[Rfam]
RNA: Makes More Granules Regulator RNA (mmgR)
Organism: Methylobacterium nodulans
RNA sequence: AGUUGCUGCCCAUCUUGGGGCGUUUCCUCCCUAGACUUUGGCCACACCGCGCGUGUGGCCUUUUUUUGUGGAGGC
Numbered sequence: 001a002g003u004u005g006c007u008g009c010c011c012a013u014c015u016u017g018g019g020g021c022g023u024u025u026c027c028u029c030c031c032u033a034g035a036c037u038u039u040g041g042c043c044a045c046a047c048c049g050c051g052c053g054u055g056u057g058g059c060c061u062u063u064u065u066u067u068g069u070g071g072a073g074g075c
Stems, first nucleotide, its partner, number of pairs: 008021004040060008